A member of the RNA family "GP20-a RNA", 95 nucleotides long. The family's RNA type in Rfam is cis-regulatory element. The family's consensus secondary structure is taken from published work.
RNA sequence: AAAAGUCUAGUAUGCAGACAUUUAACGCAUACCAUCUAGCGUGGAAGGUAACACGCAAUUAUAAAUCAAACCAUUAAAAUAGAUGCAGGAGGAAA
Numbered sequence: 001a002a003a004a005g006u007c008u009a010g011u012a013u014g015c016a017g018a019c020a021u022u023u024a025a026c027g028c029a030u031a032c033c034a035u036c037u038a039g040c041g042u043g044g045a046a047g048g049u050a051a052c053a054c055g056c057a058a059u060u061a062u063a064a065a066u067c068a069a070a071c072c073a074u075u076a077a078a079a080u081a082g083a084u085g086c087a088g089g090a091g092g093a094a095a
Stems, first nucleotide, its partner, number of pairs: 005019004010032005033085005039056005